[Rfam]
Small nucleolar RNA SNORA1: a 135-nucleotide RNA from Panthera leo. ACA1 is a member of the H/ACA class of snoRNA that guide the sites of modification of uridines to pseudouridines. Rfam links the family to the GO terms nucleolus and RNA processing. The family's consensus secondary structure was predicted with PFOLD. It scores 109 bits against the family's covariance model.
Nucleotides: 135
Stems, first nucleotide, its partner, number of pairs: 002062003006058001008056001021045007074128001088114006
Number, partner (000 for none) and nucleotide at each position: 001000a002062g003061c004060c005000u006058c007000a008056u009000u010000c011000u012000a013000g014000a015000u016000g017000g018000a019000a020000a021045u022044g023043g024042g025041c026040a027039c028000u029000g030000u031000c032000a033000c034000u035000c036000a037000u038000g039027g040026u041025g042024u043023c044022c045021a046000g047000a048000g049000a050000u051000u052000g053000u054000u055000a056008a057000c058006g059000c060004g061003g062002c063000u064000a065000c066000a067000c068000u069000g070000a071000g072000a073000c074128a075000c076000a077000c078000a079000u080000u081000u082000u083000g084000c085000u086000a087000c088114c089113a090112u091111c092110a093109c094000a095000g096000c097000a098000a099000g100000u101000u102000u103000a104000u105000u106000g107000c108000c109093g110092u111091g112090g113089u114088g115000a116000c117000a118000g119000u120000g121000a122000g123000a124000c125000c126000c127000a128074u129000a130000a131000c132000a133000g134000c135000a